[Rfam]
RNA: L17 ribosomal protein downstream element
RNA sequence: AGAGUGUUAUGAUGUUGGAGGCGACUCCGAGUCUAGCUCGCGCCGUGUCCGCUGGUUUCCAGCGGAC
Numbered sequence: 001a002g003a004g005u006g007u008u009a010u011g012a013u014g015u016u017g018g019a020g021g022c023g024a025c026u027c028c029g030a031g032u033c034u035a036g037c038u039c040g041c042g043c044c045g046u047g048u049c050c051g052c053u054g055g056u057u058u059c060c061a062g063c064g065g066a067c
Base pairs, nucleotide, nucleotide: 002039003038004037005036011033012032013031017028018027019026020025047067048066049065050064051063052062053061054060055059